RNA sequence: GGGAGCGGAUGGGGCCUGGUGGCUUCAGCAGUCUUCAAAACUGCCUAGGGGGCGCUAUGCCGUCCUCGGUGGGUUCGAUUCCUACACGCUCCC
Numbered sequence: 001g002g003g004a005g006c007g008g009a010u011g012g013g014g015c016c017u018g019g020u021g022g023c024u025u026c027a028g029c030a031g032u033c034u035u036c037a038a039a040a041c042u043g044c045c046u047a048g049g050g051g052g053c054g055c056u057a058u059g060c061c062g063u064c065c066u067c068g069g070u071g072g073g074u075u076c077g078a079u080u081c082c083u084a085c086a087c088g089c090u091c092c093c
Stems, first nucleotide, its partner, number of pairs: 001093007008085001011026006027046001028044005048067005070084004
Shown here is a 93-nucleotide RNA sequence from Anaerosporomusa subterranea, a member of the family "Selenocysteine transfer RNA". It scores 72 bits against the family's covariance model. Pairs were carried over by alignment from the consensus structure, which is taken from published work. The literature on the family includes a 1997 paper in Nucleic Acids Res by Lowe and Eddy, "tRNAscan-SE: a program for improved detection of transfer RNA genes in genomic sequence".